Nucleotides: 128
Stems, first nucleotide, its partner, number of pairs: 001046005007040006071094005077088004
Number, partner (000 for none) and nucleotide at each position: 001046c002045u003044g004043u005042g006000g007040c008039c009038a010037c011036c012035g013000c014000g015000c016000u017000g018000a019000u020000g021000u022000g023000c024000g025000a026000c027000g028000g029000a030000g031000u032000c033000g034000g035012u036011g037010g038009u039008g040007g041000a042005c043004a044003c045002a046001g047000a048000a049000a050000g051000u052000u053000c054000u055000a056000c057000a058000g059000a060000c061000g062000u063000c064000c065000a066000u067000c068000g069000c070000a071094c072093c073092g074091u075090u076000u077088a078087a079086g080085u081000a082000c083000c084000c085080a086079c087078u088077u089000c090075a091074a092073c093072g094071g095000c096000c097000c098000g099000a100000a101000c102000a103000c104000g105000g106000g107000a108000g109000a110000g111000a112000a113000c114000g115000c116000u117000g118000a119000g120000c121000g122000u123000u124000a125000c126000a127000a128000c
Shown here is a 128-nucleotide sequence from Corynebacterium occultum, a member of the family "atpB RNA". It is annotated as a cis-regulatory element. The source organism's lineage runs through Bacteria, Actinomycetota, Mycobacteriales, Corynebacteriaceae and Corynebacterium. The family's consensus secondary structure is taken from published work.